Annotation:
A member of the RNA family "U4atac minor spliceosomal RNA" from Rhinopomastus cyanomelas, 118 nucleotides long. U4atac is an essential component of the minor U12-type spliceosome complex which is required for removal of the rarer class of eukaryotic introns (AT-AC, U12-type). On this family, see Shukla et al., Nucleic Acids Res 2002: "Domains of human U4atac snRNA required for U12-dependent splicing in vivo".
[Rfam]
RNA sequence: ACCGUCCUUAUCUGGGGGUUGCGUGGCUGCCCAAUGAGCGCCUGGCGAGGGCAGCCCUGCUAACACCUUAAGCAACACAAACAGCGCCCGCUGUACGCGCGGCGCAAUUUUUGGAACC
Numbered sequence: 001a002c003c004g005u006c007c008u009u010a011u012c013u014g015g016g017g018g019u020u021g022c023g024u025g026g027c028u029g030c031c032c033a034a035u036g037a038g039c040g041c042c043u044g045g046c047g048a049g050g051g052c053a054g055c056c057c058u059g060c061u062a063a064c065a066c067c068u069u070a071a072g073c074a075a076c077a078c079a080a081a082c083a084g085c086g087c088c089c090g091c092u093g094u095a096c097g098c099g100c101g102g103c104g105c106a107a108u109u110u111u112u113g114g115a116a117c118c
Base pairs, nucleotide, nucleotide: 006018007017008016009015021060022059023058026055027054028053029052030051031050032049038046039045084105085104086103087102088101089099090098091097